[Rfam]
RNA: Plant small nucleolar RNA U3
RNA sequence: ACAACCUUACGUGAACAGGAUCUUUUCUAUAGGCUCGUACCUCUUUGUCCUUAAGCUCGAAGAAGACAGGUUUCCAAGUCUCGUUGAUGAACCACGACUGUGUGAUCUGAGCGUGAUUAUUGGUCUUGUGGUUUCCACACUGGUUUCACUUCGACCGCAAAGGAUCGUUCCAAGCUUGCCUUGUGCGGCUGGAAAGGUCACACAGUUGUCUGACAGAUU
Numbered sequence: 001a002c003a004a005c006c007u008u009a010c011g012u013g014a015a016c017a018g019g020a021u022c023u024u025u026u027c028u029a030u031a032g033g034c035u036c037g038u039a040c041c042u043c044u045u046u047g048u049c050c051u052u053a054a055g056c057u058c059g060a061a062g063a064a065g066a067c068a069g070g071u072u073u074c075c076a077a078g079u080c081u082c083g084u085u086g087a088u089g090a091a092c093c094a095c096g097a098c099u100g101u102g103u104g105a106u107c108u109g110a111g112c113g114u115g116a117u118u119a120u121u122g123g124u125c126u127u128g129u130g131g132u133u134u135c136c137a138c139a140c141u142g143g144u145u146u147c148a149c150u151u152c153g154a155c156c157g158c159a160a161a162g163g164a165u166c167g168u169u170c171c172a173a174g175c176u177u178g179c180c181u182u183g184u185g186c187g188g189c190u191g192g193a194a195a196g197g198u199c200a201c202a203c204a205g206u207u208g209u210c211u212g213a214c215a216g217a218u219u
Base pairs, nucleotide, nucleotide: 001038002037003035005033006032007031013027014026015025017023018022043069044068046066048064050062051061052060078218079217080216081215097206098205099204100203101202102201103200104199105198106197107196108195110169111168112167113166121157122156123155124154125153128149129148130147131146134143135142170192171191172190175187178186179185